A member of the RNA family "Small nucleolar RNA SNORA70" from Cercocebus atys, 129 nucleotides long. Taxonomically the source falls in Cercocebus (Eukaryota, Deuterostomia, Tetrapoda, Euarchontoglires). For this family Rfam cites "Pseudouridine in RNA: what, where, how, and why" (Charette and Gray, IUBMB Life, 2000). Rfam links the family to the GO terms RNA processing and nucleolus. Rfam describes the family as follows. snoRNA U70 seems to be exclusive to mammals and is a member of the H/ACA class of snoRNA which contain H (ANANNA) and ACA box motifs. H/ACA box snoRNAs are involved in the conversion of uridines to pseudouridines (5-ribosyluracil) a constituent of structural RNAs (transfer, ribosomal, small nuclear, and small nucleolar).
RNA sequence: CUGCAGCCAAUACUGACUGAGUUCCCUUCCUCAUGGGGCCCAGGUGCAAUGGCUGCAAAACAAGCAGCUUCCCUGGAGUGAAGCCAGCCUGUUGUUAUGGGUGCCCCUAAAGAACCUUGGAGGACAGUC
Numbered sequence: 001c002u003g004c005a006g007c008c009a010a011u012a013c014u015g016a017c018u019g020a021g022u023u024c025c026c027u028u029c030c031u032c033a034u035g036g037g038g039c040c041c042a043g044g045u046g047c048a049a050u051g052g053c054u055g056c057a058a059a060a061c062a063a064g065c066a067g068c069u070u071c072c073c074u075g076g077a078g079u080g081a082a083g084c085c086a087g088c089c090u091g092u093u094g095u096u097a098u099g100g101g102u103g104c105c106c107c108u109a110a111a112g113a114a115c116c117u118u119g120g121a122g123g124a125c126a127g128u129c
Stems, first nucleotide, its partner, number of pairs: 002048004017043003022038004075116002087102004
Rfam classes the family as an H/ACA-box small nucleolar RNA.